[Rfam]
Shown here is an 83-nucleotide RNA from Brugia malayi, a member of the family "mir-83 microRNA precursor family". Rfam links the family to the GO terms RISC complex and miRNA-mediated post-transcriptional gene silencing. The match comes from Rfam's covariance-model search (48 bits). For this family Rfam cites "Dynamic expression of small non-coding RNAs, including novel microRNAs and piRNAs/21U-RNAs, during Caenorhabditis elegans development" (Kato et al., Genome Biol, 2009). Rfam 15.1 lists 60 matches to the family in 55 species.

RNA sequence: ACCUAUUGGAUCCUGAAUUUGUUUGAGUGCUGGAUGGAAUAUAGUAAAAUCUCUAGCACCAUUUAAAUUCAGUAUUCCAACCG
Numbered sequence: 001a002c003c004u005a006u007u008g009g010a011u012c013c014u015g016a017a018u019u020u021g022u023u024u025g026a027g028u029g030c031u032g033g034a035u036g037g038a039a040u041a042u043a044g045u046a047a048a049a050u051c052u053c054u055a056g057c058a059c060c061a062u063u064u065a066a067a068u069u070c071a072g073u074a075u076u077c078c079a080a081c082c083g
Stems, first nucleotide, its partner, number of pairs: 013072009024061002027059002030056002033053002036051001